[Rfam]
RNA sequence: UCAUCACCACCAUUUCCCUGAUUGAUCUUUCAGGCGUUUUGUGGUGCUUGGAAGAUAACCUUCCGAGUAAGUGCAGUAAGCAAAUAGGAAAACCUCUCGGAAGAUAACUUUCGAGAGGUUUUUUUA
Numbered sequence: 001u002c003a004u005c006a007c008c009a010c011c012a013u014u015u016c017c018c019u020g021a022u023u024g025a026u027c028u029u030u031c032a033g034g035c036g037u038u039u040u041g042u043g044g045u046g047c048u049u050g051g052a053a054g055a056u057a058a059c060c061u062u063c064c065g066a067g068u069a070a071g072u073g074c075a076g077u078a079a080g081c082a083a084a085u086a087g088g089a090a091a092a093c094c095u096c097u098c099g100g101a102a103g104a105u106a107a108c109u110u111u112c113g114a115g116a117g118g119u120u121u122u123u124u125u126a
Base pairs, nucleotide, nucleotide: 008046009045010044011041012040017034018033019032020031021030047067048066049065050064051063052062053061054060088123089122090121091120092119093118094117095116096115097114098113099112100111101110102109103108
The record is a 126-nucleotide sequence from Caviibacterium pharyngocola, which matches "Histidine operon leader" in Rfam. About the family: At least 6 amino acid operons are known to be regulated by attenuation. In each a leader sequence of 150-200 bp is found upstream of the first gene in the operon. This leader sequence can assume two different secondary structures known as the terminator and the anti-terminator structure. In each case the leader also codes for very short peptide sequence that is rich in the end product amino acid of the operon. Lineage of the source: Bacteria > Pseudomonadati > Pasteurellales > Pasteurellaceae > Caviibacterium. It is annotated as a cis-regulatory leader. Pairs were carried over by alignment from the consensus structure, which is taken from published work.